Description:
A member of the RNA family "Small nucleolar RNA snoR74" from Nicotiana sylvestris, 135 nucleotides long.
RNA sequence: GAGAAAUGGGGCCUAUUGCUAUUCUAUAUGUGGGUUUCUUGUAAUAUUCAGGACAUAAAUUUGCAUUGUUUUGGGUGAACCAGUCGACCUAUUUGGCUAUUCGUGAUAUAGUUUUUCAGUAAAUGAUGCACAUUU
Numbered sequence: 001g002a003g004a005a006a007u008g009g010g011g012c013c014u015a016u017u018g019c020u021a022u023u024c025u026a027u028a029u030g031u032g033g034g035u036u037u038c039u040u041g042u043a044a045u046a047u048u049c050a051g052g053a054c055a056u057a058a059a060u061u062u063g064c065a066u067u068g069u070u071u072u073g074g075g076u077g078a079a080c081c082a083g084u085c086g087a088c089c090u091a092u093u094u095g096g097c098u099a100u101u102c103g104u105g106a107u108a109u110a111g112u113u114u115u116u117c118a119g120u121a122a123a124u125g126a127u128g129c130a131c132a133u134u135u
Base pairs, nucleotide, nucleotide: 005048006047007046009037010036012034013033014032015031063129064128065127066126067125068124069123070122076118077117078116079115082112
Its family is annotated with nucleolus and RNA processing in the Gene Ontology. The family's RNA type in Rfam is H/ACA-box small nucleolar RNA.